drz-agam-1 ribozyme: a 76-nucleotide RNA sequence from Acyrthosiphon pisum. It scores 40 bits against the family's covariance model. The literature on the family includes a 2009 paper in Science by Webb et al., "Widespread occurrence of self-cleaving ribozymes". Taxonomically the source falls in Acyrthosiphon (Eukaryota, Metazoa, Sternorrhyncha, Aphididae). The family's consensus secondary structure is taken from published work.
RNA sequence: GGUUGGCAGAGUCCUACCCCCACCUCCACAUGGUGCCGACUGGAAACGGAAUUCCGGUUCCUGCCAACGGGGGUGG
Number, nucleotide and partner (000 for none) at each position: 001g000002g000003u000004u000005g000006g000007c000008a000009g000010a000011g000012u000013c076014c075015u000016a000017c072018c071019c070020c069021c000022a034023c033024c032025u000026c000027c000028a000029c000030a000031u000032g024033g023034u022035g000036c000037c000038g000039a000040c063041u000042g061043g060044a059045a058046a000047c056048g055049g054050a000051a000052u000053u000054c049055c048056g047057g000058u045059u044060c043061c042062u000063g040064c000065c000066a000067a000068c000069g020070g019071g018072g017073g000074u000075g014076g013